[Rfam]
RNA sequence: AGGUGCAUUGCAGGGCAACUGCUCCAUUGGCAGAGGAAUGGAUGUGGAUUACCCCUCUUACCUUGAUGUUUUGUCUGUCUGCCAAAGGAGAUUUGCCCCGCGAUUCACCG
Numbered sequence: 001a002g003g004u005g006c007a008u009u010g011c012a013g014g015g016c017a018a019c020u021g022c023u024c025c026a027u028u029g030g031c032a033g034a035g036g037a038a039u040g041g042a043u044g045u046g047g048a049u050u051a052c053c054c055c056u057c058u059u060a061c062c063u064u065g066a067u068g069u070u071u072u073g074u075c076u077g078u079c080u081g082c083c084a085a086a087g088g089a090g091a092u093u094u095g096c097c098c099c100g101c102g103a104u105u106c107a108c109c110g
Stems, first nucleotide, its partner, number of pairs: 005106001007104003011100001013098006022090004028084007036076001
A member of the RNA family "mir-399 microRNA precursor family" from Triticum turgidum, 110 nucleotides long. The source organism's lineage runs through Eukaryota, Streptophyta, Streptophytina, Triticeae and Triticum turgidum. Rfam's curators write: mir-399 was identified in both Arabidopsis thaliana and Oryza sativa computationally and was later experimentally verified. mir-399 is thought to target mRNAs coding for a phosphatase transporter. The mature sequence is excised from the 3' arm of the hairpin. Rfam 15.1 lists 2,396 matches to the family in 221 species. The family's consensus secondary structure was predicted with PFOLD.